[Rfam]
Shown here is a 79-nucleotide sequence from Cnephaeus nilssonii, a member of the family "mir-203 microRNA precursor family". It scores 66 bits against the family's covariance model. Rfam links the family to the GO terms miRNA-mediated post-transcriptional gene silencing and RISC complex. A reference for the family is Chen et al. (2005), "The developmental miRNA profiles of zebrafish as determined by small RNA cloning", Genes Dev.
RNA sequence: GCCCGCCGGGGCUAGUGGUCCUAAACAUUUCACAAUUGCGCUACAGACUGUUGAACUGUUGAGAACCACUGGCCCCGGC
Numbered sequence: 001g002c003c004c005g006c007c008g009g010g011g012c013u014a015g016u017g018g019u020c021c022u023a024a025a026c027a028u029u030u031c032a033c034a035a036u037u038g039c040g041c042u043a044c045a046g047a048c049u050g051u052u053g054a055a056c057u058g059u060u061g062a063g064a065a066c067c068a069c070u071g072g073c074c075c076c077g078g079c
Base pairs, nucleotide, nucleotide: 014070015069016068017067018066019065021063022062024060025059026058027057029055030054031053032052